[Rfam]
RNA sequence: ACUUUUGUGCGUGGUGGCAGUAUUGUAGCCAACGAGGCCCAGCUGAGGCGUGAUUAUUGCUCGUUGAAAACAUUUCCCUUUUUCCUUCUUCGGCUUUCCUUCCCCUCAAGCACCCCAUUCUGGAAUGCACUGGAGUAC
Number, nucleotide and partner (000 for none) at each position: 001a000002c000003u000004u000005u000006u000007g000008u000009g000010c000011g000012u000013g000014g000015u000016g000017g000018c000019a000020g000021u000022a054023u053024u052025g051026u050027a000028g049029c048030c047031a000032a000033c000034g000035a000036g044037g043038c042039c000040c000041a000042g038043c037044u036045g000046a000047g030048g029049c028050g026051u025052g024053a023054u022055u000056a000057u000058u000059g000060c000061u000062c000063g000064u000065u000066g000067a000068a000069a000070a000071c000072a000073u000074u000075u000076c000077c000078c000079u000080u000081u000082u000083u000084c000085c000086u135087u134088c133089u132090u000091c000092g000093g128094c127095u000096u125097u124098c123099c000100u000101u000102c000103c000104c000105c000106u000107c000108a000109a000110g000111c000112a000113c000114c000115c000116c000117a000118u000119u000120c000121u000122g000123g098124a097125a096126u000127g094128c093129a000130c000131u000132g089133g088134a087135g086136u000137a000138c000